Notes:
The record is a 96-nucleotide RNA sequence from Streptomyces sp. SS, which matches "che1 RNA" in Rfam. Rfam classes the family as a small RNA.
[Rfam]
RNA sequence: UGGACAGGGGGGUUCCCGCUCUCACCGAGUGGGGCCUGUCCAACGCAGGCCACGCGAAACGCGUGGCCCAUGGUUGUCGCUCGGGGGUGAUCGCCG
Numbered sequence: 001u002g003g004a005c006a007g008g009g010g011g012g013u014u015c016c017c018g019c020u021c022u023c024a025c026c027g028a029g030u031g032g033g034g035c036c037u038g039u040c041c042a043a044c045g046c047a048g049g050c051c052a053c054g055c056g057a058a059a060c061g062c063g064u065g066g067c068c069c070a071u072g073g074u075u076g077u078c079g080c081u082c083g084g085g086g087g088u089g090a091u092c093g094c095c096g
Base pairs, nucleotide, nucleotide: 001042002041003040004039005038006037007036008035014034015033016032017031018030019029020028048068049067050066051065052064053063054062055061